RNA sequence: GGCGAUAAACGGUCGAUGAAAUAAGCCUAUUGGACCCGGGGGCGGUACCCGGCGCCUCCACCAAAAACCGGUCUACCGAGACGACCGGCUUCUGAUGGGGGCGAAAUAGGAUCGACAAGGGUGUAAAGAUCGAACUUUUGCUCGGCAUGAUACCGCCGUUAUCGGGUCACAAUAGUAGUUGCAAACGACAACUAUGCGGAAGCUCGUCUCGCUGCCUAA
Dot-bracket structure: (((((........((((........(((.(((...(((((.......)))))(((((((.....................................)))))))............)))))).......)))).....)))))((((........)))).............................................................
Background:
Shown here is a 219-nucleotide RNA sequence from Pseudorhizobium banfieldiae, a member of the family "permuted transfer-messenger RNA". A search with the family's covariance model found it, with a score of 159 bits.